[Rfam]
RNA sequence: AAAUGUAAUAGUUUGGUAACUCAAGGGUGGUUGGCUCACUCCUCUAUUCAGAAUGGGGGUGAGGCCUUAUGACAGUAUUUGAAGCAUUAAUGUUUGCAGUAGCAUUCGCAGCAUUAAUUGUAUCAAUACUUUCGUCAGUAAAUAAAAAAUAACCCAUCCUUGAGUUUGCAGGCACGGAUGGGUUAGUACUAUCUUGUAGCCAAUCCCCUUGUAGGGACCAACUAUUAUUGUUGACUACUUGAUGCUGGAACAUCAGGU
Numbered sequence: 001a002a003a004u005g006u007a008a009u010a011g012u013u014u015g016g017u018a019a020c021u022c023a024a025g026g027g028u029g030g031u032u033g034g035c036u037c038a039c040u041c042c043u044c045u046a047u048u049c050a051g052a053a054u055g056g057g058g059g060u061g062a063g064g065c066c067u068u069a070u071g072a073c074a075g076u077a078u079u080u081g082a083a084g085c086a087u088u089a090a091u092g093u094u095u096g097c098a099g100u101a102g103c104a105u106u107c108g109c110a111g112c113a114u115u116a117a118u119u120g121u122a123u124c125a126a127u128a129c130u131u132u133c134g135u136c137a138g139u140a141a142a143u144a145a146a147a148a149a150u151a152a153c154c155c156a157u158c159c160u161u162g163a164g165u166u167u168g169c170a171g172g173c174a175c176g177g178a179u180g181g182g183u184u185a186g187u188a189c190u191a192u193c194u195u196g197u198a199g200c201c202a203a204u205c206c207c208c209u210u211g212u213a214g215g216g217a218c219c220a221a222c223u224a225u226u227a228u229u230g231u232u233g234a235c236u237a238c239u240u241g242a243u244g245c246u247g248g249a250a251c252a253u254c255a256g257g258u
Stems, first nucleotide, its partner, number of pairs: 001229002005225003009221001013203005020164008029154004036062003040059005071133002074130004084097003108124001175196003204217004237258008
Dot-bracket structure: ((..(((.(...(((((..((((((((.((((...(((.(((((..........))))))))........((.((((......(((........)))..........(...............)..)))).)).................))))..))))))))..........(((................)))..)))))((((......))))...).)))..)).......((((((((......))))))))
RNA: BsrG
Organism: Ureibacillus manganicus